Description:
This 81-nucleotide RNA sequence from Izhakiella capsodis belongs to the Rfam family "antisense RNA of dnaA mRNA". Lineage of the source: Bacteria > Pseudomonadati > Pseudomonadota > Erwiniaceae > Izhakiella. The base pairs follow the family's consensus structure, which was predicted with RNAfold.
RNA sequence: CCUGGCAUUCGCCUUACGCGCAACAAUGCCAUUGCCGACAGCAUGGAGCAGGUGAGUUUUACCAAGACCGGUACCGCCAUA
Numbered sequence: 001c002c003u004g005g006c007a008u009u010c011g012c013c014u015u016a017c018g019c020g021c022a023a024c025a026a027u028g029c030c031a032u033u034g035c036c037g038a039c040a041g042c043a044u045g046g047a048g049c050a051g052g053u054g055a056g057u058u059u060u061a062c063c064a065a066g067a068c069c070g071g072u073a074c075c076g077c078c079a080u081a
Stems, first nucleotide, its partner, number of pairs: 005042002009038003013034001016032001018030001020029002051078004056074002061072003